[Rfam]
RNA sequence: ACCACAUACUUACCUACUAUAUAGUAGACGGGGUACAUGUAUUUCAGCUACUAUAUAGUAGGUAAGUAUGAGGUUU
Dot-bracket structure: (((.(((((((((((.(((((((((((..((.(((....))).))..))))))))))).))))))))))).)))..
Numbered sequence: 001a002c003c004a005c006a007u008a009c010u011u012a013c014c015u016a017c018u019a020u021a022u023a024g025u026a027g028a029c030g031g032g033g034u035a036c037a038u039g040u041a042u043u044u045c046a047g048c049u050a051c052u053a054u055a056u057a058g059u060a061g062g063u064a065a066g067u068a069u070g071a072g073g074u075u076u
Stems, first nucleotide, its partner, number of pairs: 001074003005070011017058011030045002033042003